The record is a 196-nucleotide RNA sequence from Alginatibacterium sediminis, which matches "Lysine riboswitch aptamer" in Rfam. A search with the family's covariance model found it, with a score of 103 bits. The organism belongs to Alginatibacterium, within Bacteria.
RNA sequence: CUGCAAAGUAGAGGUGCGGUAGUCAUUAGUUAUCAAGCGUAGGCGGCAGCCGCAAAGACUUGAUUAAAGGGGCUAUCGCCGAAGCGACAACUUAGGCAUAAGUUGAAGCUGGUAUUGUUUCGAAUAGGAGCUGUACUGUCAUAGUUAACCAGGGAUUUAUUCCCUAGCCUUUAAACUAUGGAGCGCUACUGCAUAU
Numbered sequence: 001c002u003g004c005a006a007a008g009u010a011g012a013g014g015u016g017c018g019g020u021a022g023u024c025a026u027u028a029g030u031u032a033u034c035a036a037g038c039g040u041a042g043g044c045g046g047c048a049g050c051c052g053c054a055a056a057g058a059c060u061u062g063a064u065u066a067a068a069g070g071g072g073c074u075a076u077c078g079c080c081g082a083a084g085c086g087a088c089a090a091c092u093u094a095g096g097c098a099u100a101a102g103u104u105g106a107a108g109c110u111g112g113u114a115u116u117g118u119u120u121c122g123a124a125u126a127g128g129a130g131c132u133g134u135a136c137u138g139u140c141a142u143a144g145u146u147a148a149c150c151a152g153g154g155a156u157u158u159a160u161u162c163c164c165u166a167g168c169c170u171u172u173a174a175a176c177u178a179u180g181g182a183g184c185g186c187u188a189c190u191g192c193a194u195a196u
Stems, first nucleotide, its partner, number of pairs: 007190005016079009032064006083110003088105007111137005117131005139181007
Dot-bracket structure: ......(((((....(((((((((.......((((((.....................))))))......)))))))))...(((..(((((((....)))))))..)))(((((.(((((.....))))).))))).(((((((.............................)))))))....)))))......